[Rfam]
RNA sequence: UGGGUGUGGCAGGUGGUUGCUUGCGUGUUUUUUGCAAACAAAAAAGCGCAAGAGGAAAGUCCGAGCUACAUUAAGACGAGGAUUCCAUUUAACAAAUGGCUGGCGCAAGUCAAGGGAAAGUGCAACAGAAAAAAACCGCUUUUUAAGCAAGGGUGAAAAGGUGGGGUAAGAGCCCACCGACUUUUUAGCAAUAUCAAGUGCCAUGCAAACCCAAUCCGUAGCAAGAAGGGCAGGUUGGAAGUCUUAAAAUUUAAAGUCCUUUGCAUGAGGGGCAAAGUGAUUUGUCCCCUAGAUAAAUAACCACCCACGACAGAACUCGGCUUACGCCACGCCCAAGAU
Number, nucleotide and partner (000 for none) at each position: 001u335002g334003g333004g332005u331006g330007u329008g328009g327010c326011a000012g305013g304014u303015g302016g301017u300018u299019g000020c052021u051022u050023g049024c048025g047026u046027g000028u044029u043030u042031u041032u040033u000034g000035c000036a000037a000038a000039c000040a032041a031042a030043a029044a028045a000046g026047c025048g024049c023050a022051a021052g020053a000054g000055g000056a000057a323058a322059g321060u000061c320062c319063g318064a317065g316066c221067u220068a219069c218070a000071u000072u000073a000074a000075g000076a000077c000078g244079a000080g217081g216082a215083u214084u213085c099086c098087a097088u096089u095090u000091a000092a000093c000094a000095a089096a088097u087098g086099g085100c114101u112102g111103g110104c109105g000106c000107a000108a000109g104110u103111c102112a101113a000114g100115g212116g211117a000118a000119a000120g210121u209122g206123c205124a204125a000126c000127a000128g000129a000130a000131a000132a000133a000134a000135a000136c152137c151138g148139c147140u146141u145142u000143u000144u000145a141146a140147g139148c138149a000150a000151g137152g136153g000154u000155g000156a000157a000158a000159a000160g178161g177162u176163g175164g174165g173166g000167u000168a000169a000170g000171a000172g000173c165174c164175c163176a162177c161178c160179g201180a199181c198182u197183u196184u000185u000186u193187a192188g000189c000190a000191a000192u187193a186194u000195c000196a183197a182198g181199u180200g000201c179202c000203a000204u124205g123206c122207a000208a000209a121210c120211c116212c115213a084214a083215u082216c081217c080218g069219u068220a067221g066222c000223a000224a000225g262226a261227a260228g259229g000230g000231c000232a000233g000234g000235u000236u000237g000238g252239a251240a250241g000242u248243c000244u078245u000246a000247a000248a242249a000250u240251u239252u238253a000254a000255a000256g000257u000258c000259c228260u227261u226262u225263g000264c000265a000266u000267g000268a000269g288270g287271g286272g285273c284274a283275a282276a281277g000278u000279g000280a000281u276282u275283u274284g273285u272286c271287c270288c269289c000290u000291a000292g000293a000294u000295a000296a000297a000298u000299a018300a017301c016302c015303a014304c013305c012306c000307a000308c000309g000310a000311c000312a000313g000314a000315a000316c065317u064318c063319g062320g061321c059322u058323u057324a000325c000326g010327c009328c008329a007330c006331g005332c004333c003334c002335a001336a000337g000338a000339u000
Record summary
A member of the RNA family "Bacterial RNase P class A" from Helicobacter sp. MIT 99-10781, 339 nucleotides long. Rfam classes the family as a ribozyme. The organism belongs to Helicobacter, within Bacteria. On this family, see Beauregard et al., RNA Biol 2013: "Identification and characterization of small RNAs in Yersinia pestis". It scores 254 bits against the family's covariance model.